[Rfam]
RNA: THF (Tetrahydrofolate) riboswitch aptamer
Organism: Fructobacillus durionis
RNA sequence: UAUGGGGUAGAAACCCGUGCGUUAAGUGCGCUGGAAACGGAAUGUGGGCCAGCGACGAAACAGUUAAUGUGCGGUGCGGGUUUCGCAUUCACCAAC
Numbered sequence: 001u002a003u004g005g006g007g008u009a010g011a012a013a014c015c016c017g018u019g020c021g022u023u024a025a026g027u028g029c030g031c032u033g034g035a036a037a038c039g040g041a042a043u044g045u046g047g048g049c050c051a052g053c054g055a056c057g058a059a060a061c062a063g064u065u066a067a068u069g070u071g072c073g074g075u076g077c078g079g080g081u082u083u084c085g086c087a088u089u090c091a092c093c094a095a096c
Stems, first nucleotide, its partner, number of pairs: 003094003010084010020073003026056002029054006040090005060070003